Rfam assigns this 51-nucleotide RNA sequence to the family "Glutamine riboswitch aptamer (glnA leader)".

RNA sequence: AUCGUUCAUCUCUUAGGAGACGGAAGUAGGUGAGAACCGAAGGAACGCGCC
Numbered sequence: 001a002u003c004g005u006u007c008a009u010c011u012c013u014u015a016g017g018a019g020a021c022g023g024a025a026g027u028a029g030g031u032g033a034g035a036a037c038c039g040a041a042g043g044a045a046c047g048c049g050c051c
Base pairs, nucleotide, nucleotide: 003047004046005045006044007043009020010019011018012017023048029038030037031036